[Rfam]
Rfam assigns this 95-nucleotide RNA sequence from Capsicum annuum to the family "small nucleolar RNA snoR126". A reference for the family is Chen and Wu (2009), "Mining small RNA sequencing data: a new approach to identify small nucleolar RNAs in Arabidopsis", Nucleic Acids Res. The family's consensus secondary structure was predicted with RNAalifold. By type it is a C/D-box small nucleolar RNA.
RNA sequence: AGGCAAUGAAGAAAGAAAUCAUUUCUCGAUGCUGAUUAUAACGAUAUCAACGUUUUAUACAUUUUUGAUGACCUAUUUGUGCGUGUCUGAGCCUC
Numbered sequence: 001a002g003g004c005a006a007u008g009a010a011g012a013a014a015g016a017a018a019u020c021a022u023u024u025c026u027c028g029a030u031g032c033u034g035a036u037u038a039u040a041a042c043g044a045u046a047u048c049a050a051c052g053u054u055u056u057a058u059a060c061a062u063u064u065u066u067g068a069u070g071a072c073c074u075a076u077u078u079g080u081g082c083g084u085g086u087c088u089g090a091g092c093c094u095c
Stems, first nucleotide, its partner, number of pairs: 001094004